[Rfam]
RNA sequence: UAAGUAUGGCAGAUGAUCGCGUGUUUUCACACGAGGAAAGUCGGAGCUCCACAGAGCAGGGUGCUAGGUAACGCCUAGUGAGAGCGAUCUUAAGGAUAGUGCAACAGAAAUAAACCGCCAUUUUUGGCAAGGAUGGAAAGGCGAGGUAAGAGCUCACCAGCAUAUAGGUGACUAUAUGGCUAUGUAAACCCCACCUGGUGCAAGGCCAAGAUAGGAUUAAGAGAUGUUGCUCGCAUCUCCCGGAUGGUAGGCCGCUUGAGCUUGCCGGUGACGGUAAGUCUAGAUAGAUGAUCAUCUAAUACAGAACUCCGCUUAUAGCCAUGCUUAAUUA
Dot-bracket structure: ((((((((((((((((((.(((((....)))))....[[[.[[[[[(.((...[[[[.((((((((((.....)))))(((((....)))).)((...(((((...........((((((....))))..)).......((.(((.......))).)).((((((((....))))))).)..)))..))))))))))).)...((((.......(.......(((((.]]]])))))...)........))))......((((((((....))))))))..........)))))))..........]]]]]]]].).))))))))))....
Background
Shown here is a 331-nucleotide RNA from Peptostreptococcus sp. D1, a member of the family "Bacterial RNase P class A".